[Rfam]
RNA: sraA
Organism: Escherichia coli
Nucleotides: 097
Stems, first nucleotide, its partner, number of pairs: 008039001010037002018033002020030002063087007071079003
Number, partner (000 for none) and nucleotide at each position: 001000c002000c003000u004000u005000a006000a007000g008039u009000u010037a011036g012000c013000g014000c015000u016000u017000a018033u019032g020030g021029g022000a023000u024000g025000u026000u027000u028000c029021c030020c031000c032019c033018a034000c035000a036011u037010u038000c039008a040000a041000c042000g043000c044000c045000g046000a047000g048000a049000a050000u051000a052000g053000a054000g055000g056000a057000a058000a059000a060000a061000u062000u063087a064086a065085a066084g067083g068082g069081g070000a071079g072078a073077u074000a075000a076000a077073a078072u079071c080000c081069c082068c083067c084066c085065u086064u087063u088000u089000u090000g091000g092000u093000u094000a095000a096000c097000u